A member of the RNA family "Xanthine riboswitch aptamer (NMT1 RNA)", 54 nucleotides long. Its family is annotated with purine nucleobase binding in the Gene Ontology. The base pairs follow the family's consensus structure, which is taken from published work. A reference for the family is Yu and Breaker (2020), "A bacterial riboswitch class senses xanthine and uric acid to regulate genes associated with purine oxidation", RNA.

RNA sequence: UCCCUGAGUAGAAGCUGUCAGCCGGAAAGCCUCCGGUGGGUCAUUGCUCCCUUG
Numbered sequence: 001u002c003c004c005u006g007a008g009u010a011g012a013a014g015c016u017g018u019c020a021g022c023c024g025g026a027a028a029g030c031c032u033c034c035g036g037u038g039g040g041u042c043a044u045u046g047c048u049c050c051c052u053u054g
Stems, first nucleotide, its partner, number of pairs: 006049005015039001019040001021037006